[Rfam]
Shown here is an 80-nucleotide RNA sequence from Sporobacter termitidis, a member of the family "c-di-GMP-I riboswitch aptamer". The base pairs follow the family's consensus structure, which is taken from published work. It scores 57 bits against the family's covariance model. Rfam links the family to the GO term cyclic-di-GMP binding. Taxonomically the source falls in Sporobacter termitidis (Bacteria, Bacillati, Eubacteriales, Sporobacter).
RNA sequence: ACAUAUGUUUGGCAAAUCCGUCGAAAGACGGAGACGCAAAGCUCGGAGCCUGAAUUAAGUAUGGCAGUCCGGCCGCAUCG
Numbered sequence: 001a002c003a004u005a006u007g008u009u010u011g012g013c014a015a016a017u018c019c020g021u022c023g024a025a026a027g028a029c030g031g032a033g034a035c036g037c038a039a040a041g042c043u044c045g046g047a048g049c050c051u052g053a054a055u056u057a058a059g060u061a062u063g064g065c066a067g068u069c070c071g072g073c074c075g076c077a078u079c080g
Stems, first nucleotide, its partner, number of pairs: 012037002017032006041073003045070003048065003055059001